[Rfam]
Shown here is a 115-nucleotide RNA sequence, a member of the family "FTHFS RNA". The base pairs follow the family's consensus structure, which is taken from published work. It is one of the family's seed sequences. By type it is a cis-regulatory element.
RNA sequence: UUCGGUACUUAAGUACCGAAUAGAAUGUGUGCAGUGAGCCAUUGCAACGGCAGCUGCAUAAAUCCUGUAUGGGCCGAUCCACAGAAAACGGUAGGCACCAACAAACUACAAGGAG
Numbered sequence: 001u002u003c004g005g006u007a008c009u010u011a012a013g014u015a016c017c018g019a020a021u022a023g024a025a026u027g028u029g030u031g032c033a034g035u036g037a038g039c040c041a042u043u044g045c046a047a048c049g050g051c052a053g054c055u056g057c058a059u060a061a062a063u064c065c066u067g068u069a070u071g072g073g074c075c076g077a078u079c080c081a082c083a084g085a086a087a088a089c090g091g092u093a094g095g096c097a098c099c100a101a102c103a104a105a106c107u108a109c110a111a112g113g114a115g
Stems, first nucleotide, its partner, number of pairs: 001020008029059007038051003071099002073096003